[Rfam]
RNA: Rhodo-rpoB RNA
Organism: Sulfitobacter aestuariivivens
RNA sequence: CAGUCGAGUGCCGCACUUUGGGUCGUGUGGCGAGAAUGGACUGAACCCGCGCCGUCUCCGUAUGGCUGCCCGCGCAGGGACCCGACUGCGCGCGCG
Dot-bracket structure: (((((....(((((((........))))))).......))))).......................(((.(.(((((........))))).).)))